RNA sequence: UUCUUAUCCAGAGCGACCGAGGGACAUGGCCCGAUGACGUCCGGCAACCCCCGAUUGGGAAGGUGCCAAUUCCUGCAGAAUGAUUUCAUUCUGAAAGAUAAGCU
Numbered sequence: 001u002u003c004u005u006a007u008c009c010a011g012a013g014c015g016a017c018c019g020a021g022g023g024a025c026a027u028g029g030c031c032c033g034a035u036g037a038c039g040u041c042c043g044g045c046a047a048c049c050c051c052c053g054a055u056u057g058g059g060a061a062g063g064u065g066c067c068a069a070u071u072c073c074u075g076c077a078g079a080a081u082g083a084u085u086u087c088a089u090u091c092u093g094a095a096a097g098a099u100a101a102g103c104u
Stems, first nucleotide, its partner, number of pairs: 003102006013042001015041003021032003028073002043067004048063002050059003071096001076093006

Overview:
Rfam assigns this 104-nucleotide RNA sequence from Neobacillus rhizophilus to the family "SAM riboswitch aptamer (S box leader)". The family's consensus secondary structure is taken from published work.